RNA sequence: UGCGGUUUCGGGACUUAACCCUCUUGUGAACAGUUUAUUGGACUUCCAUGUUCACAGUGGUUAAGUUCUGCCAUCCUG
Numbered sequence: 001u002g003c004g005g006u007u008u009c010g011g012g013a014c015u016u017a018a019c020c021c022u023c024u025u026g027u028g029a030a031c032a033g034u035u036u037a038u039u040g041g042a043c044u045u046c047c048a049u050g051u052u053c054a055c056a057g058u059g060g061u062u063a064a065g066u067u068c069u070g071c072c073a074u075c076c077u078g
Base pairs, nucleotide, nucleotide: 011068012067013066014065015064016063017062018061019060020059026055027054028053029052030051031050032049

mir-27 microRNA precursor family: a 78-nucleotide sequence from Triplophysa tibetana. Pairs were carried over by alignment from the consensus structure, which was predicted with RNAalifold.